[Rfam]
RNA sequence: UGAUAUAAGACUAUGUAACCUUGUAUAAGUUCAAGAAUAUGGCUUGAACGUUUCUACCGAGCUACCGUAAAUAGCUUGACUACAAGGGAACGAGGGUAUAGG
Dot-bracket structure: ..................(((((((...(((((((.......)))))))........(((((((.......)))))))..)))))))...............
Numbered sequence: 001u002g003a004u005a006u007a008a009g010a011c012u013a014u015g016u017a018a019c020c021u022u023g024u025a026u027a028a029g030u031u032c033a034a035g036a037a038u039a040u041g042g043c044u045u046g047a048a049c050g051u052u053u054c055u056a057c058c059g060a061g062c063u064a065c066c067g068u069a070a071a072u073a074g075c076u077u078g079a080c081u082a083c084a085a086g087g088g089a090a091c092g093a094g095g096g097u098a099u100a101g102g
Stems, first nucleotide, its partner, number of pairs: 019087007029049007058078007

Annotation: The family of this 102-nucleotide sequence from [Anoxybacillus] calidus is "Purine riboswitch aptamer". The family has 133 seed sequences and 4,097 matches in Rfam 15.1. The base pairs follow the family's consensus structure, which is taken from published work.